[Rfam]
RNA sequence: AAGUUGCACUAGGGGAGCUGUGAAAGCGGCUGAGAGGAACUGUAUUGUUCUGACCCUUUGAACCCGAUCUAGAUAAUACUAGCGUGGGGAAGUGCAGUCGAAUAGGU
Numbered sequence: 001a002a003g004u005u006g007c008a009c010u011a012g013g014g015g016a017g018c019u020g021u022g023a024a025a026g027c028g029g030c031u032g033a034g035a036g037g038a039a040c041u042g043u044a045u046u047g048u049u050c051u052g053a054c055c056c057u058u059u060g061a062a063c064c065c066g067a068u069c070u071a072g073a074u075a076a077u078a079c080u081a082g083c084g085u086g087g088g089g090a091a092g093u094g095c096a097g098u099c100g101a102a103u104a105g106g107u
Base pairs, nucleotide, nucleotide: 006095007094008093009092010091011057012056013055014054016051017030018029019028020027021026037050038049039048040047063088064087065086066085069082070081071080072079
Rfam assigns this 107-nucleotide sequence from Natronobacillus azotifigens to the family "TPP riboswitch aptamer (THI element)". The match comes from Rfam's covariance-model search (84 bits).